[Rfam]
Shown here is a 512-nucleotide sequence from Paulinella micropora, a member of the family "Group I catalytic intron". Lineage of the source: Eukaryota > Sar > Silicofilosea > Euglyphida > Paulinella. Rfam's curators write: Group I catalytic introns are large self-splicing ribozymes.
RNA sequence: CAGCGUGACUGGCCAGAGCUGUUGACUACCUACCGUAAGUUACGGUGUCAUGGGCCCUCGAUACACUCUCAAACUGCGAGAAAGUCCUGAGAGCAUUUGAUACCGCGGCCCCCGGGAAACCGAGGUGCAGCAGGCGAUGUAACGGUCGUCGGAUGGUAAAAACUCAAAGGAUUGGGCAAUCCGCAGCCAAGUCCCUUUUUGUCAGGCCAACCCCGCGCAUGGCUCCUACUCGGUACGACUACCUCCUUGGUCGGCUGCCUGGUGUUCCGACGUGAGUUUUAGUGACCAGUGGUUACGGGAAAUGGCCACUACUCUCGACGUCGGCCCAUUUCUGUCAGCACUGCAGCUGGCCCGCCGGCAGUUCUCCGUCGCCACUACCCAGUGGUGUCCUGGCAAAUGGGAAAGGUUCAGAGACUAAACGGGAGUGAGGAUAUCCCUGUGUGCUGGUAGGCAUAUUAGGACAUUAGCAGGGAGAUCUUUAAGAUAUAGUCCGGCCCCCGCGAAAGGCGGGC
Numbered sequence: 001c002a003g004c005g006u007g008a009c010u011g012g013c014c015a016g017a018g019c020u021g022u023u024g025a026c027u028a029c030c031u032a033c034c035g036u037a038a039g040u041u042a043c044g045g046u047g048u049c050a051u052g053g054g055c056c057c058u059c060g061a062u063a064c065a066c067u068c069u070c071a072a073a074c075u076g077c078g079a080g081a082a083a084g085u086c087c088u089g090a091g092a093g094c095a096u097u098u099g100a101u102a103c104c105g106c107g108g109c110c111c112c113c114g115g116g117a118a119a120c121c122g123a124g125g126u127g128c129a130g131c132a133g134g135c136g137a138u139g140u141a142a143c144g145g146u147c148g149u150c151g152g153a154u155g156g157u158a159a160a161a162a163c164u165c166a167a168a169g170g171a172u173u174g175g176g177c178a179a180u181c182c183g184c185a186g187c188c189a190a191g192u193c194c195c196u197u198u199u200u201g202u203c204a205g206g207c208c209a210a211c212c213c214c215g216c217g218c219a220u221g222g223c224u225c226c227u228a229c230u231c232g233g234u235a236c237g238a239c240u241a242c243c244u245c246c247u248u249g250g251u252c253g254g255c256u257g258c259c260u261g262g263u264g265u266u267c268c269g270a271c272g273u274g275a276g277u278u279u280u281a282g283u284g285a286c287c288a289g290u291g292g293u294u295a296c297g298g299g300a301a302a303u304g305g306c307c308a309c310u311a312c313u314c315u316c317g318a319c320g321u322c323g324g325c326c327c328a329u330u331u332c333u334g335u336c337a338g339c340a341c342u343g344c345a346g347c348u349g350g351c352c353c354g355c356c357g358g359c360a361g362u363u364c365u366c367c368g369u370c371g372c373c374a375c376u377a378c379c380c381a382g383u384g385g386u387g388u389c390c391u392g393g394c395a396a397a398u399g400g401g402a403a404a405g406g407u408u409c410a411g412a413g414a415c416u417a418a419a420c421g422g423g424a425g426u427g428a429g430g431a432u433a434u435c436c437c438u439g440u441g442u443g444c445u446g447g448u449a450g451g452c453a454u455a456u457u458a459g460g461a462c463a464u465u466a467g468c469a470g471g472g473a474g475a476u477c478u479u480u481a482a483g484a485u486a487u488a489g490u491c492c493g494g495c496c497c498c499c500g501c502g503a504a505a506g507g508c509g510g511g512c
Base pairs, nucleotide, nucleotide: 005026006025008023010021011020012019013018032040064427065426066425067424068423070421075185076184077183078182080180085176086175087174089172186407187406192401193400194399199395411492413491414490415489416488417487429478430477431476432475434473435472436471437470497511498510499509500508501507